[Rfam]
Shown here is a 240-nucleotide sequence from Paenibacillus durus, a member of the family "BsrG". The family's RNA type in Rfam is small RNA. Rfam 15.1 lists 614 matches to the family in 343 species. For this family Rfam cites "Novel small RNA-encoding genes in the intergenic regions of Bacillus subtilis" (Saito et al., Gene, 2008).

RNA sequence: CGAUAGAAGGCUUGCAAGGGUGGUCGGCUAACUUCCCAGAGGGGAGGUGAUGCCAUGGAGGUGUACCAAGCGCUGUCUUUGAUGUUCAUGUUCGGCAUGUUCAUUAUUGCUCUGCUUAAUUACCUCAAUAAGAAAUAGACCGCCCUCGCCAAAGGAUGCGGUCUAUUUCUGACUAGUAUUCCCGAAGCCGCCGCCCUUAAAAGCGGCUAUUGCAUCGGAGUCGUGUUAGUCGCACGGCUC
Numbered sequence: 001c002g003a004u005a006g007a008a009g010g011c012u013u014g015c016a017a018g019g020g021u022g023g024u025c026g027g028c029u030a031a032c033u034u035c036c037c038a039g040a041g042g043g044g045a046g047g048u049g050a051u052g053c054c055a056u057g058g059a060g061g062u063g064u065a066c067c068a069a070g071c072g073c074u075g076u077c078u079u080u081g082a083u084g085u086u087c088a089u090g091u092u093c094g095g096c097a098u099g100u101u102c103a104u105u106a107u108u109g110c111u112c113u114g115c116u117u118a119a120u121u122a123c124c125u126c127a128a129u130a131a132g133a134a135a136u137a138g139a140c141c142g143c144c145c146u147c148g149c150c151a152a153a154g155g156a157u158g159c160g161g162u163c164u165a166u167u168u169c170u171g172a173c174u175a176g177u178a179u180u181c182c183c184g185a186a187g188c189c190g191c192c193g194c195c196c197u198u199a200a201a202a203g204c205g206g207c208u209a210u211u212g213c214a215u216c217g218g219a220g221u222c223g224u225g226u227u228a229g230u231c232g233c234a235c236g237g238c239u240c
Base pairs, nucleotide, nucleotide: 001212002211003210004209005208006207009189010188011187012186013185015148017146018145019144020143022140024138029050031048033046034045035044036043037042059117060116061115062114063113070085071084072083094111095110096109097108151168191206192205193204194203218240219239220238221237222236223235224234225233226232